Shown here is a 74-nucleotide sequence from Coxiella endosymbiont of Amblyomma americanum, a member of the family "tRNA". The family's RNA type in Rfam is transfer RNA. Pairs were carried over by alignment from the consensus structure, which is taken from published work.
RNA sequence: GCGCCCGUAGCUCAUUUGGAUAGAGCAUCGGCCUUCUAAGCCGGUGGUGGCAGGUUCAAAUCCUGCCGGGCGCG
Numbered sequence: 001g002c003g004c005c006c007g008u009a010g011c012u013c014a015u016u017u018g019g020a021u022a023g024a025g026c027a028u029c030g031g032c033c034u035u036c037u038a039a040g041c042c043g044g045u046g047g048u049g050g051c052a053g054g055u056u057c058a059a060a061u062c063c064u065g066c067c068g069g070g071c072g073c074g
Stems, first nucleotide, its partner, number of pairs: 001073007010026004028044005050066005